[Rfam]
RNA sequence: AAGCGGGGACGACCCCGCCGCUCGUCAUUUCACGGGGACGACCUC
Numbered sequence: 001a002a003g004c005g006g007g008g009a010c011g012a013c014c015c016c017g018c019c020g021c022u023c024g025u026c027a028u029u030u031c032a033c034g035g036g037g038a039c040g041a042c043c044u045c
Base pairs, nucleotide, nucleotide: 003018004017005016006015007014008013034045035044036043037042